[Rfam]
RNA sequence: AAGCUAUGAAAUCAGAGGGCGUGCCAAGAGCGUUGUCUGAUGGAGCAUGCGGGAGGGGUUGCACAGUGAAACCUCAACUUGGCGUAGGCAUCUGCCGAAAGAAAAUGUGAAUG
Numbered sequence: 001a002a003g004c005u006a007u008g009a010a011a012u013c014a015g016a017g018g019g020c021g022u023g024c025c026a027a028g029a030g031c032g033u034u035g036u037c038u039g040a041u042g043g044a045g046c047a048u049g050c051g052g053g054a055g056g057g058g059u060u061g062c063a064c065a066g067u068g069a070a071a072c073c074u075c076a077a078c079u080u081g082g083c084g085u086a087g088g089c090a091u092c093u094g095c096c097g098a099a100a101g102a103a104a105a106u107g108u109g110a111a112u113g
Stems, first nucleotide, its partner, number of pairs: 001048001003046002011041006018034005024082004063108003087096003